This 111-nucleotide RNA from Cervus elaphus belongs to the Rfam family "Small Cajal body specific RNA 24". A reference for the family is Darzacq et al. (2002), "Cajal body-specific small nuclear RNAs: a novel class of 2'-O-methylation and pseudouridylation guide RNAs", EMBO J. scaRNAs are a specific class of small nuclear RNAs which localise to the Cajal bodies and guide the modification of RNA polymerase II transcribed spliceosomal RNAs U1, U2, U4, U5 and U12. ACA12 belongs to the H/ACA box class of guide RNAs as it has the predicted hairpin-hinge-hairpin-tail structure,the conserved H/ACA-box motifs and is found associated with GAR1. The family's consensus secondary structure was predicted with RNAfold. Its Rfam clan is "SCARNA3 clan".
RNA sequence: UGGACAUUUUCUUCUAUUCAGUUUCUUCUGAGGGUGAAGAUAACUCUUUGUAAAUGUCCUAGAGAAAUACAGUAGCUUUCUGUUUACCCUUUGCUAGUAAUACUGACAUUU
Numbered sequence: 001u002g003g004a005c006a007u008u009u010u011c012u013u014c015u016a017u018u019c020a021g022u023u024u025c026u027u028c029u030g031a032g033g034g035u036g037a038a039g040a041u042a043a044c045u046c047u048u049u050g051u052a053a054a055u056g057u058c059c060u061a062g063a064g065a066a067a068u069a070c071a072g073u074a075g076c077u078u079u080c081u082g083u084u085u086a087c088c089c090u091u092u093g094c095u096a097g098u099a100a101u102a103c104u105g106a107c108a109u110u111u
Stems, first nucleotide, its partner, number of pairs: 002059008011050001020045004024040005070105005

Taxonomically the source falls in Cervus elaphus (Eukaryota, Amniota, Ruminantia, Cervinae).